[Rfam]
RNA sequence: AUUUUCUUGUACAUCCCAAUUAUCGAAGCUCUACACACAGAGUAACUUGUUUACUCAUAUUGGCUUUGGGGAAAGUCCCCGGACACAGGGCAGAAAGUGCCGCCUGUAAAAGGUAUUGACUCUCAAUUGUUGCUCACUCUGUUUCUCUUUUUUAACUAGCAAGCAAGGUAAAUGUUUCUCUGGCGUUAUAAUGGCUCUUUUUGUGCUCUAAAGACUGAGGGGGUGUUAAUGGGAACACUUUAAGCAACGAUGCCGUUGGGAAGAGCUUUUGCCGUUCCUUAUCCUUUCUUUUUUGUUGGGUACAUUUUUAGUCUAGUCUUUGAAUUGUUUGGUUUGUCGGCCUUUUAGAGGGAGAAAUAAGCGGGUAAGAAGGGUUUGUUCGUCAUAGCACAGUUAUGCGGUUGGCCGUGCGUUUUUUAUGAAGCGUGCGGUUACCUCAACGGGGCUCACUAUUCCAAGUAUU
Numbered sequence: 001a002u003u004u005u006c007u008u009g010u011a012c013a014u015c016c017c018a019a020u021u022a023u024c025g026a027a028g029c030u031c032u033a034c035a036c037a038c039a040g041a042g043u044a045a046c047u048u049g050u051u052u053a054c055u056c057a058u059a060u061u062g063g064c065u066u067u068g069g070g071g072a073a074a075g076u077c078c079c080c081g082g083a084c085a086c087a088g089g090g091c092a093g094a095a096a097g098u099g100c101c102g103c104c105u106g107u108a109a110a111a112g113g114u115a116u117u118g119a120c121u122c123u124c125a126a127u128u129g130u131u132g133c134u135c136a137c138u139c140u141g142u143u144u145c146u147c148u149u150u151u152u153u154a155a156c157u158a159g160c161a162a163g164c165a166a167g168g169u170a171a172a173u174g175u176u177u178c179u180c181u182g183g184c185g186u187u188a189u190a191a192u193g194g195c196u197c198u199u200u201u202u203g204u205g206c207u208c209u210a211a212a213g214a215c216u217g218a219g220g221g222g223g224u225g226u227u228a229a230u231g232g233g234a235a236c237a238c239u240u241u242a243a244g245c246a247a248c249g250a251u252g253c254c255g256u257u258g259g260g261a262a263g264a265g266c267u268u269u270u271g272c273c274g275u276u277c278c279u280u281a282u283c284c285u286u287u288c289u290u291u292u293u294u295g296u297u298g299g300g301u302a303c304a305u306u307u308u309u310a311g312u313c314u315a316g317u318c319u320u321u322g323a324a325u326u327g328u329u330u331g332g333u334u335u336g337u338c339g340g341c342c343u344u345u346u347a348g349a350g351g352g353a354g355a356a357a358u359a360a361g362c363g364g365g366u367a368a369g370a371a372g373g374g375u376u377u378g379u380u381c382g383u384c385a386u387a388g389c390a391c392a393g394u395u396a397u398g399c400g401g402u403u404g405g406c407c408g409u410g411c412g413u414u415u416u417u418u419a420u421g422a423a424g425c426g427u428g429c430g431g432u433u434a435c436c437u438c439a440a441c442g443g444g445g446c447u448c449a450c451u452a453u454u455c456c457a458a459g460u461a462u463u
Stems, first nucleotide, its partner, number of pairs: 004461001006459003009455001011453001016401001017398001023069007040056006074447002077445004089101004282373002287370004292365005304358004341351004405432011

Description
This 463-nucleotide RNA sequence from Coemansia sp. RSA 1591 belongs to the Rfam family "RNase MRP". Rfam's curators write: RNase MRP is an enzymatically active ribonucleoprotein with two distinct roles in eukaryotes. In mitochondria it plays a direct role in the initiation of mitochondrial DNA replication. In the nucleus it is involved in precursor rRNA processing, where it cleaves the internal transcribed spacer 1 between 18S and 5.8S rRNAs. Despite distinct functions, RNase MRP has been shown to be evolutionarily related to RNase P. Like eukaryotic RNase P, RNase MRP is not catalytically active without associated protein subunits. Rfam classes the family as a ribozyme.